[Rfam]
RNA sequence: AUACCCCAUGAUGCUCAGGUCCGCCGCAUCUCCUGGGUCGUGGGGUCGGUCGAUCGGCGUGCAGUUUUGCGGUUCCUCGUGCCGCUUUGCAUGCCGAUCGGCCCCCUA
Numbered sequence: 001a002u003a004c005c006c007c008a009u010g011a012u013g014c015u016c017a018g019g020u021c022c023g024c025c026g027c028a029u030c031u032c033c034u035g036g037g038u039c040g041u042g043g044g045g046u047c048g049g050u051c052g053a054u055c056g057g058c059g060u061g062c063a064g065u066u067u068u069g070c071g072g073u074u075c076c077u078c079g080u081g082c083c084g085c086u087u088u089g090c091a092u093g094c095c096g097a098u099c100g101g102c103c104c105c106c107u108a
Stems, first nucleotide, its partner, number of pairs: 003046008014037006048103011

Shown here is a 108-nucleotide sequence from Rhizobium sp. Root149, a member of the family "EcpR1".
A search with the family's covariance model found it, with a score of 99 bits.
It is annotated as a small RNA.
Rfam describes the family as follows. Perviously named SmelC291, SmrC10, or Sra33. According to its overproduction phenotype it was renamed Elongated Cell Phenotype RNA1. Induced by stress,EcpR1 negatively regulates cell cycle master regulatory genes dnaA and gcrA at post-transcriptional level by base pairing between its strongly conserved GC-rich loop and the target mRNAs. It's regulation is hfq-independent but requires RNase E to regulate dnaA.
NCBI's taxonomy places the organism under Bacteria, Pseudomonadati, Alphaproteobacteria, Rhizobiaceae, Rhizobium.